[Rfam]
RNA: U5 spliceosomal RNA
Organism: Aspergillus nidulans
RNA sequence: ACGGGUGUGUGGGCCUAGCUCAGAAUCCAUUUCUUGCCUUUUACCAGAGAUGGCCGUGGGCCACGCAAAAUACCCUACUACCUAAUCUUUGGAAUCAUCUAUCGACAUAGU
Dot-bracket structure: ..((((.(((((.((...........((((((((...........))))))))....)).)))))......)))).................(.(.((.(....).)).))